[Rfam]
RNA: Pseudomon-groES RNA
RNA sequence: GUAGCAGUCACCGCAAGGUCCCCUGUCGAACGGACAGGCUAUCUCAUGCGAUUCGCCCGUCGGGUCGCGAGCCGGCCACGCCGGCCUAAAAAAACUUGCCGGAUACCGAUCCGGC
Dot-bracket structure: .........(((....)))..((((((.....))))))........(((((((((.....)))))))))..((((.....)))).............((((((......))))))